Record summary:
Group II catalytic intron D1-D4-7: a 149-nucleotide sequence from Acidovorax sp. JS42. Rfam's curators put it in the seed alignment. About the family: Group II introns are found in rRNA, tRNA and mRNA of organelles in fungi, plants and protists, and also in mRNA in bacteria. Taxonomically the source falls in Acidovorax (Bacteria, Pseudomonadati, Pseudomonadota, Burkholderiales). The base pairs follow the family's consensus structure.
RNA sequence: CCUGGUGUUCCGUCAUCAGUAGCCUACCGGCACAUGCAGGACUGGUAACGGUCUUGUGUGAAGCUGCCGGGACAAUGUAGCUGGGCCCUCGGGCUGCGCUGAUGCCGUGAGGCAAGGCGUUAUCUGCAAGCAUCAAUGCGGAUACGGCG
Numbered sequence: 001c002c003u004g005g006u007g008u009u010c011c012g013u014c015a016u017c018a019g020u021a022g023c024c025u026a027c028c029g030g031c032a033c034a035u036g037c038a039g040g041a042c043u044g045g046u047a048a049c050g051g052u053c054u055u056g057u058g059u060g061a062a063g064c065u066g067c068c069g070g071g072a073c074a075a076u077g078u079a080g081c082u083g084g085g086c087c088c089u090c091g092g093g094c095u096g097c098g099c100u101g102a103u104g105c106c107g108u109g110a111g112g113c114a115a116g117g118c119g120u121u122a123u124c125u126g127c128a129a130g131c132a133u134c135a136a137u138g139c140g141g142a143u144a145c146g147g148c149g
Stems, first nucleotide, its partner, number of pairs: 002019006028069005033060012084095004097119004105112002123142006